[Rfam]
Annotation
Shown here is a 35-nucleotide RNA from Pipistrellus kuhlii, a member of the family "Iron response element I".
RNA sequence: CCGUCUCUUGCUUCAACAGUGCUUGAACAGAAUGU
Numbered sequence: 001c002c003g004u005c006u007c008u009u010g011c012u013u014c015a016a017c018a019g020u021g022c023u024u025g026a027a028c029a030g031a032a033u034g035u
Base pairs, nucleotide, nucleotide: 002034003033004032006031007030008029010028012027013026014025015024016023017021
Rfam links the family to the GO term response to iron ion. The literature on the family includes a 2008 paper in J Biol Chem by Sammarco et al., "Ferritin L and H subunits are differentially regulated on a post-transcriptional level". It is annotated as a cis-regulatory element.